[Rfam]
RNA: Makes More Granules Regulator RNA (mmgR)
Organism: Altererythrobacter sp. BO-6
RNA sequence: AGAGCCUGCCUUUAUAGGCAUCCUCUCCCAAAGACUUUCAGGCCCGGCCAUUUGGUCGGGCCUUUUCUUUUGCCUGU
Numbered sequence: 001a002g003a004g005c006c007u008g009c010c011u012u013u014a015u016a017g018g019c020a021u022c023c024u025c026u027c028c029c030a031a032a033g034a035c036u037u038u039c040a041g042g043c044c045c046g047g048c049c050a051u052u053u054g055g056u057c058g059g060g061c062c063u064u065u066u067c068u069u070u071u072g073c074c075u076g077u
Base pairs, nucleotide, nucleotide: 008019009018010017011016041062042061043060044059045058046057047056048055049054